[Rfam]
RNA sequence: AAGCAACACUCUGUGGCAGAUGAUCACAGCUAUCUGACACAAUUUGAGCUUGCUAUAGUAAGGCAGUCUAACCUAUUCCGGUGUUCUCUUUUCCAUGAGACAAGCCGUUAUAUAGACUUGAACAGU
Dot-bracket structure: ........(((((((.((((((........)))))).))))....)))................((((((...(((..((((....((((......))))...))))..)))))))))........
Numbered sequence: 001a002a003g004c005a006a007c008a009c010u011c012u013g014u015g016g017c018a019g020a021u022g023a024u025c026a027c028a029g030c031u032a033u034c035u036g037a038c039a040c041a042a043u044u045u046g047a048g049c050u051u052g053c054u055a056u057a058g059u060a061a062g063g064c065a066g067u068c069u070a071a072c073c074u075a076u077u078c079c080g081g082u083g084u085u086c087u088c089u090u091u092u093c094c095a096u097g098a099g100a101c102a103a104g105c106c107g108u109u110a111u112a113u114a115g116a117c118u119u120g121a122a123c124a125g126u
Stems, first nucleotide, its partner, number of pairs: 009048003012041004017036006065118006074112003079107004087100004
About this RNA
This 126-nucleotide sequence from Camelus dromedarius belongs to the Rfam family "Small nucleolar RNA SNORA28". From the family's description: ACA28 is a member of the H/ACA class of snoRNA that guide the sites of modification of uridines to pseudouridines. The family's consensus secondary structure was predicted with RNAfold. The match comes from Rfam's covariance-model search (142 bits). Taxonomically the source falls in Camelus (Eukaryota, Eumetazoa, Teleostomi, Laurasiatheria). Its family is annotated with nucleolus and RNA processing in the Gene Ontology.